[Rfam]
About this RNA
Shown here is a 44-nucleotide RNA sequence from Shouchella clausii, a member of the family "PreQ1 (pre queuosine) riboswitch aptamer". Gene Ontology term of the family: queuosine biosynthetic process. Taxonomically the source falls in Shouchella clausii (Bacteria, Bacillati, Bacillaceae, Shouchella). Pairs were carried over by alignment from the consensus structure. Rfam's curators write: This family is a bacterial riboswitch that binds to the metabolite preQ1, an intermediate in the biosynthesis of the modified nucleoside queuosine from GTP. One example of this riboswitch is located in the leader of the Bacillus subtilis ykvJKLM (queCDEF) operon which encodes four genes necessary for queuosine production. PreQ1 binding to the riboswitch aptamer is thought to induce premature transcription termination within the leader to down-regulate expression of these genes. Rfam's curators put it in the seed alignment.
RNA sequence: AAAGAAGAGGUUCGCGAACUCCCUCUAUAAAAAACUAACCAAUU
Numbered sequence: 001a002a003a004g005a006a007g008a009g010g011u012u013c014g015c016g017a018a019c020u021c022c023c024u025c026u027a028u029a030a031a032a033a034a035c036u037a038a039c040c041a042a043u044u
Base pairs, nucleotide, nucleotide: 006026007025008024009023010022016036